Description:
Rfam assigns this 98-nucleotide sequence from Haematobacter massiliensis to the family "TPP riboswitch aptamer (THI element)". It scores 63 bits against the family's covariance model. Lineage of the source: Bacteria > Pseudomonadota > Rhodobacterales > Paracoccaceae > Haematobacter. The family's consensus secondary structure is taken from published work.
RNA sequence: UGUAUCACCUCGGGGUGCUAUCCGGCUGAGACGCGUCGCGCGAACCCGUAGAACCUGAUCCGGUCAGCACCGGCGGAGGGAAGGUCCGACGCUGUUGC
Numbered sequence: 001u002g003u004a005u006c007a008c009c010u011c012g013g014g015g016u017g018c019u020a021u022c023c024g025g026c027u028g029a030g031a032c033g034c035g036u037c038g039c040g041c042g043a044a045c046c047c048g049u050a051g052a053a054c055c056u057g058a059u060c061c062g063g064u065c066a067g068c069a070c071c072g073g074c075g076g077a078g079g080g081a082a083g084g085u086c087c088g089a090c091g092c093u094g095u096u097g098c
Base pairs, nucleotide, nucleotide: 007085008084009083010082011048012047013046014045016042017026018025019024033041034040035039054079055078056077060073061072062071063070
Dot-bracket structure: ......((((((((.((((....)))......(((...))))..)))).....(((...((((......))))...)))..)))).............